[Rfam]
RNA: BsrF
Organism: Jeotgalibacillus soli
RNA sequence: GCGAUGAGCUUGUUUGCAUAAGUCGUCCAGCAUUCCUGAAAAGGAACAUGUUGUGGAGCAUGGCUGUUGACGCCGCAAAUUUCGAGAAAACGCCCUUUCUUUUGAUAGGGCGUU
Numbered sequence: 001g002c003g004a005u006g007a008g009c010u011u012g013u014u015u016g017c018a019u020a021a022g023u024c025g026u027c028c029a030g031c032a033u034u035c036c037u038g039a040a041a042a043g044g045a046a047c048a049u050g051u052u053g054u055g056g057a058g059c060a061u062g063g064c065u066g067u068u069g070a071c072g073c074c075g076c077a078a079a080u081u082u083c084g085a086g087a088a089a090a091c092g093c094c095c096u097u098u099c100u101u102u103u104g105a106u107a108g109g110g111c112g113u114u
Stems, first nucleotide, its partner, number of pairs: 014078004024072004028066004034044002047062002050059003089114008